[Rfam]
RNA sequence: AGCCGGGUCGUCUAGUGGUCAAGGAUGGUGGGCUUUGGACCCAUCGACCCCGGUUCGAAUCCGGGCCCGGCUA
Numbered sequence: 001a002g003c004c005g006g007g008u009c010g011u012c013u014a015g016u017g018g019u020c021a022a023g024g025a026u027g028g029u030g031g032g033c034u035u036u037g038g039a040c041c042c043a044u045c046g047a048c049c050c051c052g053g054u055u056c057g058a059a060u061c062c063g064g065g066c067c068c069g070g071c072u073a
Stems, first nucleotide, its partner, number of pairs: 001072007010026004028044005049065005
tRNA: a 73-nucleotide RNA from Thermocladium modestius. The organism belongs to Thermocladium, within Archaea. Rfam's curators write: Transfer RNA (tRNA) molecules are approximately 80 nucleotides in length. The family's consensus secondary structure is taken from published work. The match comes from Rfam's covariance-model search (61 bits). By type it is a transfer RNA.